[Rfam]
RNA: Small nucleolar RNA R16
RNA sequence: GGGGGCAAGUGAUGUGAAUUUAUUUAUCCUGCACUCUGAAUUUUGAUGUAGAUUGACAAACUCCGCUUAUUGACUGAUGCUCUC
Numbered sequence: 001g002g003g004g005g006c007a008a009g010u011g012a013u014g015u016g017a018a019u020u021u022a023u024u025u026a027u028c029c030u031g032c033a034c035u036c037u038g039a040a041u042u043u044u045g046a047u048g049u050a051g052a053u054u055g056a057c058a059a060a061c062u063c064c065g066c067u068u069a070u071u072g073a074c075u076g077a078u079g080c081u082c083u084c
Base pairs, nucleotide, nucleotide: 003082004081005080006079007078